[Rfam]
RNA: mir-160 microRNA precursor family
Organism: Cannabis sativa
RNA sequence: UCUUGCCUGGCUCCCUGAAUGCCAUAUAGGAAGUUUGUCAAAAUGAAUUGGCGAAUUCCCUACUUGGCAUUGAGGGAGUCAUGCAGGU
Numbered sequence: 001u002c003u004u005g006c007c008u009g010g011c012u013c014c015c016u017g018a019a020u021g022c023c024a025u026a027u028a029g030g031a032a033g034u035u036u037g038u039c040a041a042a043a044u045g046a047a048u049u050g051g052c053g054a055a056u057u058c059c060c061u062a063c064u065u066g067g068c069a070u071u072g073a074g075g076g077a078g079u080c081a082u083g084c085a086g087g088u
Stems, first nucleotide, its partner, number of pairs: 002087005008081007016073001018071007027062003